[Rfam]
RNA sequence: GGAAACUUGAGAGGACUCGUUCUUAGUACGAGAGGACCGGAAUGAACAUACCUCUGGUGUUUCGGUUGUUCCGCCAGGAGCAUUGCCGAGUAGCCAAGUAUGGAUGAGAUAAACACUGAAAGCAUAUUAAGUGUGAAACUCGCCUCAAGAUAAGGUUUCCCUGAAGGGCACUUGUAGACUACAAGUUUGAUAGGCUGGAAGUGGAAGUACAGUAAUGUAUGUAGCUAACCAGUACUAAUUGCCCGUUCG
Numbered sequence: 001g002g003a004a005a006c007u008u009g010a011g012a013g014g015a016c017u018c019g020u021u022c023u024u025a026g027u028a029c030g031a032g033a034g035g036a037c038c039g040g041a042a043u044g045a046a047c048a049u050a051c052c053u054c055u056g057g058u059g060u061u062u063c064g065g066u067u068g069u070u071c072c073g074c075c076a077g078g079a080g081c082a083u084u085g086c087c088g089a090g091u092a093g094c095c096a097a098g099u100a101u102g103g104a105u106g107a108g109a110u111a112a113a114c115a116c117u118g119a120a121a122g123c124a125u126a127u128u129a130a131g132u133g134u135g136a137a138a139c140u141c142g143c144c145u146c147a148a149g150a151u152a153a154g155g156u157u158u159c160c161c162u163g164a165a166g167g168g169c170a171c172u173u174g175u176a177g178a179c180u181a182c183a184a185g186u187u188u189g190a191u192a193g194g195c196u197g198g199a200a201g202u203g204g205a206a207g208u209a210c211a212g213u214a215a216u217g218u219a220u221g222u223a224g225c226u227a228a229c230c231a232g233u234a235c236u237a238a239u240u241g242c243c244c245g246u247u248c249g
Stems, first nucleotide, its partner, number of pairs: 001160008011146004017045007047102005055096003062089005067082006106141003113134005163246001166244004170186005191237003194233005200226002207220005
RNA: Bacterial large subunit ribosomal RNA, nucleotides 2625 to 2873
Organism: Candidatus Endomicrobiellum trichonymphae